RNA: LOOT RNA
RNA sequence: CGCCUAAACUUUACAGCUUUGUAAGGCAUUGGUGGCAAAAUCCUGAGCAACAAACGAGGUCUCUCGACUGGCACUUGUUGCUCAGGUCUGAGUCAGAAAUGGCUCAGGGUAGCCGAAAGGUUAUC
Numbered sequence: 001c002g003c004c005u006a007a008a009c010u011u012u013a014c015a016g017c018u019u020u021g022u023a024a025g026g027c028a029u030u031g032g033u034g035g036c037a038a039a040a041u042c043c044u045g046a047g048c049a050a051c052a053a054a055c056g057a058g059g060u061c062u063c064u065c066g067a068c069u070g071g072c073a074c075u076u077g078u079u080g081c082u083c084a085g086g087u088c089u090g091a092g093u094c095a096g097a098a099a100u101g102g103c104u105c106a107g108g109g110u111a112g113c114c115g116a117a118a119g120g121u122u123a124u125c
Stems, first nucleotide, its partner, number of pairs: 001034004009026007042086011056072001059069001088107008108125006